The family of this 351-nucleotide RNA from Thalassovita mediterranea is "Alphaproteobacteria transfer-messenger RNA". The family's consensus secondary structure is taken from published work. NCBI's taxonomy places the organism under Bacteria, Pseudomonadati, Alphaproteobacteria, Rhodobacterales, Thalassovita. It is annotated as a non-coding RNA gene.
[Rfam]
RNA sequence: CCCCUUUUCAAACCAAGCCGAAGCCACUACAUAGAACCUGUUCCCUCGGGGACUAUGGACAUAAACGCGCUCGUAAUAAGCGGAUCGGACCCGGGGGCGGUACCCGGCGACUCCACCAAACAUCCUUUAUUGGGGGAUCAUGGGGUCGAAACAGGAUCGACGAACGUCUAAAGGGGUUAGCUUUGUCCCGGUGAGAUACCACCGUUAUCGGUUCGCUAAGCAUAAUUGCCAAUAACAAUCGUGCUCCGAUGGCUCUGGCUGCGUAAGCAGUCCGAAAAAUCGACCUUUAAGUCCUUACGCCUAGCAGCCUAAGGCGGGGUCCGCAGGUACCUGGCAACAGAAACCUGCACC
Numbered sequence: 001c002c003c004c005u006u007u008u009c010a011a012a013c014c015a016a017g018c019c020g021a022a023g024c025c026a027c028u029a030c031a032u033a034g035a036a037c038c039u040g041u042u043c044c045c046u047c048g049g050g051g052a053c054u055a056u057g058g059a060c061a062u063a064a065a066c067g068c069g070c071u072c073g074u075a076a077u078a079a080g081c082g083g084a085u086c087g088g089a090c091c092c093g094g095g096g097g098c099g100g101u102a103c104c105c106g107g108c109g110a111c112u113c114c115a116c117c118a119a120a121c122a123u124c125c126u127u128u129a130u131u132g133g134g135g136g137a138u139c140a141u142g143g144g145g146u147c148g149a150a151a152c153a154g155g156a157u158c159g160a161c162g163a164a165c166g167u168c169u170a171a172a173g174g175g176g177u178u179a180g181c182u183u184u185g186u187c188c189c190g191g192u193g194a195g196a197u198a199c200c201a202c203c204g205u206u207a208u209c210g211g212u213u214c215g216c217u218a219a220g221c222a223u224a225a226u227u228g229c230c231a232a233u234a235a236c237a238a239u240c241g242u243g244c245u246c247c248g249a250u251g252g253c254u255c256u257g258g259c260u261g262c263g264u265a266a267g268c269a270g271u272c273c274g275a276a277a278a279a280u281c282g283a284c285c286u287u288u289a290a291g292u293c294c295u296u297a298c299g300c301c302u303a304g305c306a307g308c309c310u311a312a313g314g315c316g317g318g319g320u321c322c323g324c325a326g327g328u329a330c331c332u333g334g335c336a337a338c339a340g341a342a343a344c345c346u347g348c349a350c351c
Stems, first nucleotide, its partner, number of pairs: 040053005057188005067181002069177004081166002085163003091107005108148007189204004195214002198212003317332004323348006